[Rfam]
RNA sequence: UUCUUAUCAAGAGAGGGGGAGGGACUGGCCCAAUGAACCCUCAGCAACCGACUUCAGCGAAAAAAUCUCUUAAGGGAAAACCGAAGCAAUGAAAUUUGCUCGUUAUGCCCCAAUACAUACGUUUUUCCUUAAGAGCAACAUCCGGCCACAAUCUUUUCGCUUUUUCGAAGUCAAGGUGCUAAAUCCAGACAGGCGUUUCGCUUGGAAGAUAAGAA
Numbered sequence: 001u002u003c004u005u006a007u008c009a010a011g012a013g014a015g016g017g018g019g020a021g022g023g024a025c026u027g028g029c030c031c032a033a034u035g036a037a038c039c040c041u042c043a044g045c046a047a048c049c050g051a052c053u054u055c056a057g058c059g060a061a062a063a064a065a066u067c068u069c070u071u072a073a074g075g076g077a078a079a080a081c082c083g084a085a086g087c088a089a090u091g092a093a094a095u096u097u098g099c100u101c102g103u104u105a106u107g108c109c110c111c112a113a114u115a116c117a118u119a120c121g122u123u124u125u126u127c128c129u130u131a132a133g134a135g136c137a138a139c140a141u142c143c144g145g146c147c148a149c150a151a152u153c154u155u156u157u158c159g160c161u162u163u164u165u166c167g168a169a170g171u172c173a174a175g176g177u178g179c180u181a182a183a184u185c186c187a188g189a190c191a192g193g194c195g196u197u198u199c200g201c202u203u204g205g206a207a208g209a210u211a212a213g214a215a
Stems, first nucleotide, its partner, number of pairs: 001215008013042005021031003025188004043180004048176002050172006184207001190204006
Dot-bracket structure: ((((((((....(((((...(((.[[[[)))......)))))((((.((((((((...............................................................................................................))))))..))))))...(]]]].((((((...))))))..)))))))))
RNA: SAM riboswitch aptamer (S box leader)
Organism: [Anoxybacillus] calidus